[Rfam]
RNA sequence: CCCGCGGAAGGACGGAAAGACCCCGUGAACCUUUACUGCAGCUUGACAUUGGCUGCCGGUUCGUCGUGUAGAGGAUAGGUGGGAGACCUUGAACCCGGGACGCCAGUCCCGGGGGAGUCGCCCUUGGAAUACCACCCUCGGCGUUCUGGCAUCCUAACCCCUCGCCGUGAUCCGGGAGGGGGACCGUGUCAGGUGGGUAGUUUGACUGGGGCGGUCGCCUCCUAAAACGUAACGGAGGCGCACGUAAGGUCUGCUCAGGGUGGUCGGCAACCACCCCCUUGAGUGCAAGAGCAUAAGCAGGCUUGACUGCGAGGCCCACAAGCCGAGCAGGUGGGAAACCAGGUUCUAGUGAUCCGGCGGCUCAGAGUGGAAUGGCCGUCGCUCAACGGAUAAAAGGUACUCCGGGGAUAACAGGCUGAUCUUCCCCAAGAGUCCACAUCGACGGGAAGGUUUGGCACCUCGAUGUCGGCUCAUCGCAUCCUGGGGCUGGAGCAGGUCCCAAGGGUAUGGCCGUUCGCCAUUUAAAGCGGUACGCGAGCUGGGUUCAGAACGUCGUGAGACAGUUCGGUCCCUAUCCUCCGUGGGCGUA
Numbered sequence: 001c002c003c004g005c006g007g008a009a010g011g012a013c014g015g016a017a018a019g020a021c022c023c024c025g026u027g028a029a030c031c032u033u034u035a036c037u038g039c040a041g042c043u044u045g046a047c048a049u050u051g052g053c054u055g056c057c058g059g060u061u062c063g064u065c066g067u068g069u070a071g072a073g074g075a076u077a078g079g080u081g082g083g084a085g086a087c088c089u090u091g092a093a094c095c096c097g098g099g100a101c102g103c104c105a106g107u108c109c110c111g112g113g114g115g116a117g118u119c120g121c122c123c124u125u126g127g128a129a130u131a132c133c134a135c136c137c138u139c140g141g142c143g144u145u146c147u148g149g150c151a152u153c154c155u156a157a158c159c160c161c162u163c164g165c166c167g168u169g170a171u172c173c174g175g176g177a178g179g180g181g182g183a184c185c186g187u188g189u190c191a192g193g194u195g196g197g198u199a200g201u202u203u204g205a206c207u208g209g210g211g212c213g214g215u216c217g218c219c220u221c222c223u224a225a226a227a228c229g230u231a232a233c234g235g236a237g238g239c240g241c242a243c244g245u246a247a248g249g250u251c252u253g254c255u256c257a258g259g260g261u262g263g264u265c266g267g268c269a270a271c272c273a274c275c276c277c278c279u280u281g282a283g284u285g286c287a288a289g290a291g292c293a294u295a296a297g298c299a300g301g302c303u304u305g306a307c308u309g310c311g312a313g314g315c316c317c318a319c320a321a322g323c324c325g326a327g328c329a330g331g332u333g334g335g336a337a338a339c340c341a342g343g344u345u346c347u348a349g350u351g352a353u354c355c356g357g358c359g360g361c362u363c364a365g366a367g368u369g370g371a372a373u374g375g376c377c378g379u380c381g382c383u384c385a386a387c388g389g390a391u392a393a394a395a396g397g398u399a400c401u402c403c404g405g406g407g408a409u410a411a412c413a414g415g416c417u418g419a420u421c422u423u424c425c426c427c428a429a430g431a432g433u434c435c436a437c438a439u440c441g442a443c444g445g446g447a448a449g450g451u452u453u454g455g456c457a458c459c460u461c462g463a464u465g466u467c468g469g470c471u472c473a474u475c476g477c478a479u480c481c482u483g484g485g486g487c488u489g490g491a492g493c494a495g496g497u498c499c500c501a502a503g504g505g506u507a508u509g510g511c512c513g514u515u516c517g518c519c520a521u522u523u524a525a526a527g528c529g530g531u532a533c534g535c536g537a538g539c540u541g542g543g544u545u546c547a548g549a550a551c552g553u554c555g556u557g558a559g560a561c562a563g564u565u566c567g568g569u570c571c572c573u574a575u576c577c578u579c580c581g582u583g584g585g586c587g588u589a
Stems, first nucleotide, its partner, number of pairs: 001585008010577003014572002022406004027402002029398005035201004042193007051154002054151006062143005068137001078136005085119003094113008158181003162178001165175003204216004217239006240387001242344002249302006255282002258276006283292002307330004313324003332341003355381007363374002415456003419453001420450007430440002467542001468540004472534001473531005480505002483500006507521005548566004552561003
This 589-nucleotide part of an RNA from Olsenella sp. oral taxon 809 belongs to the Rfam family "Bacterial large subunit ribosomal RNA".